Rfam assigns this 133-nucleotide RNA from Gouania willdenowi to the family "Small nucleolar RNA SNORA68". Rfam classes the family as an H/ACA-box small nucleolar RNA. It scores 61 bits against the family's covariance model. U68 is a member of the H/ACA class of small nucleolar RNAs (snoRNAs) which act as guides in the the modification of uridines to pseudouridines. Rfam 15.1 lists 1,079 matches to the family in 643 species.
[Rfam]
RNA sequence: UCUGCAGCCAAACCCAAAGGUGGCGCCGUGCACUGUGGUGUCAUUUUGUCUGGUUUGCAAACAUGAACUUGGACCUUGUCGCCUUUCUCCGCUACUGCUGUGCUUCUGAAAGUGAAUCCAAGGUCCAACAAGU
Numbered sequence: 001u002c003u004g005c006a007g008c009c010a011a012a013c014c015c016a017a018a019g020g021u022g023g024c025g026c027c028g029u030g031c032a033c034u035g036u037g038g039u040g041u042c043a044u045u046u047u048g049u050c051u052g053g054u055u056u057g058c059a060a061a062c063a064u065g066a067a068c069u070u071g072g073a074c075c076u077u078g079u080c081g082c083c084u085u086u087c088u089c090c091g092c093u094a095c096u097g098c099u100g101u102g103c104u105u106c107u108g109a110a111a112g113u114g115a116a117u118c119c120a121a122g123g124u125c126c127a128a129c130a131a132g133u
Base pairs, nucleotide, nucleotide: 003059004058005057006056007055009053019045020044021043022042023041024040025039026038027037028036071126072125073124074123075122076121077120083112084111085110086109087108091103092102